The family of this 74-nucleotide RNA sequence from Xenopus laevis is "mir-17 microRNA precursor family". The organism belongs to Xenopus, within Eukaryota.
[Rfam]
RNA sequence: GCAGUUCCAAAGUGCUCAUAGUGCAGGUAGUUGUAUUCAUGUUCUACUGUAAUAUGGGCACUUACAGUACUGCU
Numbered sequence: 001g002c003a004g005u006u007c008c009a010a011a012g013u014g015c016u017c018a019u020a021g022u023g024c025a026g027g028u029a030g031u032u033g034u035a036u037u038c039a040u041g042u043u044c045u046a047c048u049g050u051a052a053u054a055u056g057g058g059c060a061c062u063u064a065c066a067g068u069a070c071u072g073c074u
Base pairs, nucleotide, nucleotide: 001073002072003071004070007067010063011062012061013060014059015058016057017056018055019054020053022051023050024049026048027047028046029045030044
Record summary:
The family's consensus secondary structure was predicted with RNAalifold. Rfam describes the family as follows. This family represents the microRNA (miRNA) precursor mir-17, family, which includes mir-20, mir-91, and mir-103. miRNAs are transcribed as ~70nt precursors (modelled here) and subsequently processed by the Dicer enzyme to give a ~22nt product. In this case the mature sequence comes from the 3' arm of the precursor. The extents of the hairpin precursors are not generally known and are estimated based on hairpin prediction. Gene Ontology terms of the family: miRNA-mediated post-transcriptional gene silencing and RISC complex. The sequence is in the family's curated seed alignment.